The family of this 66-nucleotide RNA from Mucilaginibacter pedocola is "Fluoride riboswitch aptamer (crcB RNA motif)". A search with the family's covariance model found it, with a score of 49 bits.

RNA sequence: GAUUUAAACGGAAAUGGUGUCUUCCGUUCAAAAUAACCGCCUCGUGCUGAUGACGCCUACAAUUAU
Numbered sequence: 001g002a003u004u005u006a007a008a009c010g011g012a013a014a015u016g017g018u019g020u021c022u023u024c025c026g027u028u029c030a031a032a033a034u035a036a037c038c039g040c041c042u043c044g045u046g047c048u049g050a051u052g053a054c055g056c057c058u059a060c061a062a063u064u065a066u
Stems, first nucleotide, its partner, number of pairs: 010025004016057006039047002